Small Cajal body specific RNA 11: a 138-nucleotide RNA from Orycteropus afer. The family's consensus secondary structure was predicted with RNAalifold. The organism belongs to Orycteropus afer, within Eukaryota. It is annotated as a small Cajal body RNA. For this family Rfam cites "Cajal body-specific small nuclear RNAs: a novel class of 2'-O-methylation and pseudouridylation guide RNAs" (Darzacq et al., EMBO J, 2002). About the family: scaRNAs are a specific class of small nuclear RNAs which localise to the Cajal bodies and guide the modification of RNA polymerase II transcribed spliceosomal RNAs U1, U2, U4, U5 and U12.
RNA sequence: UUGUCCUGGCCUCUGCUUUCCCAGGUGCCCUGGGCUCAGCACUGUGGGGUCUGUGGCAGGACAUACAGCAAGCUCCCUCUCAGUUUAGGAGGGCCGUUCUAAGUACAGGGCUGGCUCUUAAAGGCGCAAGAGGACAAU
Numbered sequence: 001u002u003g004u005c006c007u008g009g010c011c012u013c014u015g016c017u018u019u020c021c022c023a024g025g026u027g028c029c030c031u032g033g034g035c036u037c038a039g040c041a042c043u044g045u046g047g048g049g050u051c052u053g054u055g056g057c058a059g060g061a062c063a064u065a066c067a068g069c070a071a072g073c074u075c076c077c078u079c080u081c082a083g084u085u086u087a088g089g090a091g092g093g094c095c096g097u098u099c100u101a102a103g104u105a106c107a108g109g110g111c112u113g114g115c116u117c118u119u120a121a122a123g124g125c126g127c128a129a130g131a132g133g134a135c136a137a138u
Base pairs, nucleotide, nucleotide: 002063003062004061005060006059007058008057010056011055024052025051028048029047030046033045076133077132078131079130080129083125084124085123086122089119090118091117092116093115094114095113096111097110098109099108100107